[Rfam]
RNA sequence: UUCCGAAAGGGCAAAACCGUCGUGAGGCGGUGACGCAAAGCCACGGGUCCGCGUGGAGCGGGCAGCCGGGCUGCCGAAG
Numbered sequence: 001u002u003c004c005g006a007a008a009g010g011g012c013a014a015a016a017c018c019g020u021c022g023u024g025a026g027g028c029g030g031u032g033a034c035g036c037a038a039a040g041c042c043a044c045g046g047g048u049c050c051g052c053g054u055g056g057a058g059c060g061g062g063c064a065g066c067c068g069g070g071c072u073g074c075c076g077a078a079g
Stems, first nucleotide, its partner, number of pairs: 001079001003076001011036002016031006034065001039072004044068003047063003

This 79-nucleotide RNA sequence from Desulfoglaeba alkanexedens belongs to the Rfam family "c-di-GMP-I-GGC riboswitch aptamer". Rfam 15.1 lists 1,298 matches to the family in 717 species. Rfam links the family to the GO term cyclic-di-GMP binding. The base pairs follow the family's consensus structure, which is taken from published work.